[Rfam]
RNA sequence: UAAGAUAAAUCCACACCCGUCGUGAGGCGAGUCCGGAAAGCCACGGGUCUUAAGAUUGAAAGAUAGCCGGGUUGUCAACA
Number, nucleotide and partner (000 for none) at each position: 001u000002a000003a000004g000005a000006u000007a000008a000009a000010u000011c036012c035013a000014c000015a000016c031017c000018c029019g028020u027021c026022g000023u000024g000025a000026g021027g020028c019029g018030a000031g016032u000033c000034c000035g012036g011037a000038a000039a073040g072041c071042c070043a000044c069045g068046g067047g064048u063049c062050u061051u060052a000053a000054g000055a000056u000057u000058g000059a000060a051061a050062g049063a048064u047065a000066g000067c046068c045069g044070g042071g041072u040073u039074g000075u000076c000077a000078a000079c000080a000
Notes:
This 80-nucleotide sequence belongs to the Rfam family "c-di-GMP-I-UAU riboswitch aptamer". Rfam links the family to the GO term cyclic-di-GMP binding. Clan: c-di-GMP_I riboswitch clan.